RNA sequence: AUCUUUACCCCAUGUUCGUCGGCGUUGCCGACACAUGCCCAGGCAGCCAAGACCUUCAAGGCUGCAAGCGCGGGAAACCGUGCUGGUUGUUUCUUUCUACGGACGCAUCGCGCCCAUCCACCCACAAGGGACCUCUCCCUUGCGGGC
Numbered sequence: 001a002u003c004u005u006u007a008c009c010c011c012a013u014g015u016u017c018g019u020c021g022g023c024g025u026u027g028c029c030g031a032c033a034c035a036u037g038c039c040c041a042g043g044c045a046g047c048c049a050a051g052a053c054c055u056u057c058a059a060g061g062c063u064g065c066a067a068g069c070g071c072g073g074g075a076a077a078c079c080g081u082g083c084u085g086g087u088u089g090u091u092u093c094u095u096u097c098u099a100c101g102g103a104c105g106c107a108u109c110g111c112g113c114c115c116a117u118c119c120a121c122c123c124a125c126a127a128g129g130g131a132c133c134u135c136u137c138c139c140u141u142g143c144g145g146g147c
Stems, first nucleotide, its partner, number of pairs: 011037005018032006043065006051088004067084007118146002125142007